[Rfam]
Rfam assigns this 122-nucleotide RNA from Peribacillus faecalis to the family "epsC RNA".
Taxonomically the source falls in Peribacillus (Bacteria, Bacillati, Bacillota, Caryophanales).
The family's RNA type in Rfam is cis-regulatory element.
RNA sequence: UGGAGAGGCUUCCUAUCCGUUAUCAAUGGAGGCACUCGGUUGUACUGUGGGAUGUUGUAAGGAAGACAUCCUUAGAUGCGCGCGUUGUCAAGGGUAUGAUGUGAGGGUGGGUUAGAUGCCCG
Numbered sequence: 001u002g003g004a005g006a007g008g009c010u011u012c013c014u015a016u017c018c019g020u021u022a023u024c025a026a027u028g029g030a031g032g033c034a035c036u037c038g039g040u041u042g043u044a045c046u047g048u049g050g051g052a053u054g055u056u057g058u059a060a061g062g063a064a065g066a067c068a069u070c071c072u073u074a075g076a077u078g079c080g081c082g083c084g085u086u087g088u089c090a091a092g093g094g095u096a097u098g099a100u101g102u103g104a105g106g107g108u109g110g111g112u113u114a115g116a117u118g119c120c121c122g
Stems, first nucleotide, its partner, number of pairs: 001019004008033006035105004039100008049072008075089004108122005